[Rfam]
RNA sequence: UGUUACCUGGCAGUGUAGUUAGCUGAUUGAGGGAGGCAACAGUCACUAACAACACAGCCAGGUAAAA
Numbered sequence: 001u002g003u004u005a006c007c008u009g010g011c012a013g014u015g016u017a018g019u020u021a022g023c024u025g026a027u028u029g030a031g032g033g034a035g036g037c038a039a040c041a042g043u044c045a046c047u048a049a050c051a052a053c054a055c056a057g058c059c060a061g062g063u064a065a066a067a
Stems, first nucleotide, its partner, number of pairs: 003065004009059002013055004018050005024045006

This 67-nucleotide sequence from Salvator merianae belongs to the Rfam family "mir-34 microRNA precursor family". The match comes from Rfam's covariance-model search (56 bits). The organism belongs to Salvator, within Eukaryota. From the family's description: Human mir-34a was discovered computationally and later experimentally verified. The mature sequence is excised from the 5' arm of the hairpin. The family's consensus secondary structure was predicted with RNAalifold. Gene Ontology terms of the family: RISC complex and miRNA-mediated post-transcriptional gene silencing.